MIR2912 microRNA precursor family: a 155-nucleotide RNA sequence from Populus deltoides.
RNA sequence: UCUAAAACUUGAGAUAUGGGUUGAACACUGAACAGUGUCUGGACUGCAGGAUAGAUUCGGACUUCUCUGUUGUUGCUACAAUUUGGACUUGAAAAUGGCCUUUUUAAAUCUUGGACUCCCAUAAAAGUUUUAGGCUUAUGUCUUAGCUUUCCAUC
Numbered sequence: 001u002c003u004a005a006a007a008c009u010u011g012a013g014a015u016a017u018g019g020g021u022u023g024a025a026c027a028c029u030g031a032a033c034a035g036u037g038u039c040u041g042g043a044c045u046g047c048a049g050g051a052u053a054g055a056u057u058c059g060g061a062c063u064u065c066u067c068u069g070u071u072g073u074u075g076c077u078a079c080a081a082u083u084u085g086g087a088c089u090u091g092a093a094a095a096u097g098g099c100c101u102u103u104u105u106a107a108a109u110c111u112u113g114g115a116c117u118c119c120c121a122u123a124a125a126a127g128u129u130u131u132a133g134g135c136u137u138a139u140g141u142c143u144u145a146g147c148u149u150u151c152c153a154u155c
Stems, first nucleotide, its partner, number of pairs: 003153001006150002008146002011144010021133005027128003035122003041119003045115001048112005054105002059100002062098002068092001072088003
The base pairs follow the family's consensus structure, which was predicted with RNAalifold. The organism belongs to Populus, within Eukaryota.